[Rfam]
RNA: SAH (S-adenosyl-L-homocysteine) riboswitch aptamer
RNA sequence: GUCGCCGAGGGGCGCUGCGACCGUGGACGGUUUAGCCACGGCCAGGCUCGGCGGAUAGCCUUUGUAACGGCGCCCGGUCAAC
Numbered sequence: 001g002u003c004g005c006c007g008a009g010g011g012g013c014g015c016u017g018c019g020a021c022c023g024u025g026g027a028c029g030g031u032u033u034a035g036c037c038a039c040g041g042c043c044a045g046g047c048u049c050g051g052c053g054g055a056u057a058g059c060c061u062u063u064g065u066a067a068c069g070g071c072g073c074c075c076g077g078u079c080a081a082c
Stems, first nucleotide, its partner, number of pairs: 002054007021041006